[Rfam]
RNA sequence: GCGCUCUGCCUCUGAUGAAGCUUACGUUGGUAGGGACAUCUGAGACUGUUGAUGAAUGCCAACAGCUCUGAUGGCGGCGC
Numbered sequence: 001g002c003g004c005u006c007u008g009c010c011u012c013u014g015a016u017g018a019a020g021c022u023u024a025c026g027u028u029g030g031u032a033g034g035g036a037c038a039u040c041u042g043a044g045a046c047u048g049u050u051g052a053u054g055a056a057u058g059c060c061a062a063c064a065g066c067u068c069u070g071a072u073g074g075c076g077g078c079g080c
Base pairs, nucleotide, nucleotide: 001080002079003078004077005076

The family of this 80-nucleotide RNA from Pipistrellus kuhlii is "Small nucleolar RNA SNORD74". On this family, see Galardi et al., Mol Cell Biol 2002: "Purified box C/D snoRNPs are able to reproduce site-specific 2'-O-methylation of target RNA in vitro". Lineage of the source: Eukaryota > Eumetazoa > Chordata > Eutheria > Pipistrellus. The family has 22 seed sequences and 929 matches in Rfam 15.1.